[Rfam]
RNA sequence: AUGGCGAGUAGAAGCGGUCAGGGCCCUUUGCCUGGGACAUUGCUCGAGUG
Number, nucleotide and partner (000 for none) at each position: 001a000002u000003g000004g000005c046006g045007a044008g043009u042010a041011g000012a000013a000014g000015c035016g000017g000018u037019c036020a000021g033022g032023g031024c030025c000026c000027u000028u000029u000030g024031c023032c022033u021034g000035g015036g019037a018038c000039a000040u000041u010042g009043c008044u007045c006046g005047a000048g000049u000050g000
Xanthine riboswitch aptamer (NMT1 RNA): a 50-nucleotide RNA sequence.
Rfam links the family to the GO term purine nucleobase binding.